A member of the RNA family "Bacterial small subunit ribosomal RNA" from Paenibacillus psychroresistens, 567 nucleotides of a longer RNA. The family is grouped with related families in Rfam's "SSU clan". Taxonomically the source falls in Paenibacillus (Bacteria, Bacilli, Caryophanales, Paenibacillaceae). Rfam links the family to the GO terms structural constituent of ribosome and ribosome. For this family Rfam cites "Crystal structure of the ribosome at 5.5 A resolution" (Yusupov et al., Science, 2001).
RNA sequence: AUUAUGGAGAGUUUGAUCCUGGCUCAGGACGAACGCUGGCGGCGUGCCUAAUACAUGCAAGUCGAGCGGUUUUCACCUUCGGGUGAGAGUAGCGGCGGACGGGUGAGUAACACGUAGGUAACCUGCCUAACAGACUGGGAUAACUACCGGAAACGGUAGCUAAGACCGGAUACGACCAUUUGAGGGCAUCCUUGAAUGGUGAAAAGCGGAGCAAUCUGCUACUGAUAGAUGGACCUGCGGCGCAUUAGCUAGUUGGUGAGGUAGUGGCUCACCAAGGCGACGAUGCGUAGCCGACCUGAGAGGGUGAACGGCCACACUGGGACUGAGACACGGCCCAGACUCCUACGGGAGGCAGCAGUAGGGAAUCUUCGGCAAUGGACGAAAGUCUGACCGAGCAACGCCGCGUGAGUGAUGAAGGUUUUCGGAUCGUAAAACUCUGUUGCCAGGGAAGAAUGGCCAGGAGAGUAACUGCUCUUGGUUUGACGGUACCUGAGAAGAAAGCCCCGGCUAACUACGUGCCAGCAGCCGCGGUAAUACGUAGGGGGCAAGCGUUGUCCGGAAUUAUUG
Numbered sequence: 001a002u003u004a005u006g007g008a009g010a011g012u013u014u015g016a017u018c019c020u021g022g023c024u025c026a027g028g029a030c031g032a033a034c035g036c037u038g039g040c041g042g043c044g045u046g047c048c049u050a051a052u053a054c055a056u057g058c059a060a061g062u063c064g065a066g067c068g069g070u071u072u073u074c075a076c077c078u079u080c081g082g083g084u085g086a087g088a089g090u091a092g093c094g095g096c097g098g099a100c101g102g103g104u105g106a107g108u109a110a111c112a113c114g115u116a117g118g119u120a121a122c123c124u125g126c127c128u129a130a131c132a133g134a135c136u137g138g139g140a141u142a143a144c145u146a147c148c149g150g151a152a153a154c155g156g157u158a159g160c161u162a163a164g165a166c167c168g169g170a171u172a173c174g175a176c177c178a179u180u181u182g183a184g185g186g187c188a189u190c191c192u193u194g195a196a197u198g199g200u201g202a203a204a205a206g207c208g209g210a211g212c213a214a215u216c217u218g219c220u221a222c223u224g225a226u227a228g229a230u231g232g233a234c235c236u237g238c239g240g241c242g243c244a245u246u247a248g249c250u251a252g253u254u255g256g257u258g259a260g261g262u263a264g265u266g267g268c269u270c271a272c273c274a275a276g277g278c279g280a281c282g283a284u285g286c287g288u289a290g291c292c293g294a295c296c297u298g299a300g301a302g303g304g305u306g307a308a309c310g311g312c313c314a315c316a317c318u319g320g321g322a323c324u325g326a327g328a329c330a331c332g333g334c335c336c337a338g339a340c341u342c343c344u345a346c347g348g349g350a351g352g353c354a355g356c357a358g359u360a361g362g363g364a365a366u367c368u369u370c371g372g373c374a375a376u377g378g379a380c381g382a383a384a385g386u387c388u389g390a391c392c393g394a395g396c397a398a399c400g401c402c403g404c405g406u407g408a409g410u411g412a413u414g415a416a417g418g419u420u421u422u423c424g425g426a427u428c429g430u431a432a433a434a435c436u437c438u439g440u441u442g443c444c445a446g447g448g449a450a451g452a453a454u455g456g457c458c459a460g461g462a463g464a465g466u467a468a469c470u471g472c473u474c475u476u477g478g479u480u481u482g483a484c485g486g487u488a489c490c491u492g493a494g495a496a497g498a499a500a501g502c503c504c505c506g507g508c509u510a511a512c513u514a515c516g517u518g519c520c521a522g523c524a525g526c527c528g529c530g531g532u533a534a535u536a537c538g539u540a541g542g543g544g545g546c547a548a549g550c551g552u553u554g555u556c557c558g559g560a561a562u563u564a565u566u567g
Stems, first nucleotide, its partner, number of pairs: 009025005027557004032553006039404006045397002047362001052360003056357003061096003066093002069090009103315003113239007122232002127228003131224003135169004144159006175200007183192003205220005241287003248278003253275008290312004294305004317338005340351004368394001370393003376389005407437004417428004441498001444492004451484001457478006501546005512541005522529002